[Rfam]
RNA sequence: UAUCUAAAUUUCAUAGGAGUUCAUAUAACCGCGGUGAUAUGGUCCGCAAGUUUCUACCAGGCUGCCGUAAAUAGCCUGACUAUGAGCGAAAGUGUACCUAGG
Number, nucleotide and partner (000 for none) at each position: 001u000002a000003u000004c000005u000006a000007a000008a000009u000010u000011u000012c000013a000014u000015a000016g000017g000018a000019g087020u086021u085022c084023a083024u082025a081026u000027a000028a000029c000030c000031g047032c046033g045034g044035u000036g000037a000038u000039a000040u000041g000042g000043u000044c034045c033046g032047c031048a000049a000050g000051u000052u000053u000054c000055u000056a000057c000058c078059a077060g076061g075062c074063u073064g072065c000066c000067g000068u000069a000070a000071a000072u064073a063074g062075c061076c060077u059078g058079a000080c000081u025082a024083u023084g022085a021086g020087c019088g000089a000090a000091a000092g000093u000094g000095u000096a000097c000098c000099u000100a000101g000102g000